[Rfam]
RNA sequence: CGGUGAUGAAUCGGUGGACUGGUUCGGCAUCGGUCUACUGAGGAGCCAAGCUAUGAGAUGAGCGAAAACCACAAACCGAAUGGAUUCAAGAAAUUGAAAGAAUGCGCUCAGC
Numbered sequence: 001c002g003g004u005g006a007u008g009a010a011u012c013g014g015u016g017g018a019c020u021g022g023u024u025c026g027g028c029a030u031c032g033g034u035c036u037a038c039u040g041a042g043g044a045g046c047c048a049a050g051c052u053a054u055g056a057g058a059u060g061a062g063c064g065a066a067a068a069c070c071a072c073a074a075a076c077c078g079a080a081u082g083g084a085u086u087c088a089a090g091a092a093a094u095u096g097a098a099a100g101a102a103u104g105c106g107c108u109c110a111g112c
Stems, first nucleotide, its partner, number of pairs: 002047003011041011024079004062107003083095004

drum RNA: a 112-nucleotide sequence. Rfam classes the family as a small RNA. The sequence is in the family's curated seed alignment. Firmicutes, Bacteroidetes (1 example), Proteobacteria (2 examples), Spirochaetes (2 examples). The family's consensus secondary structure is taken from published work.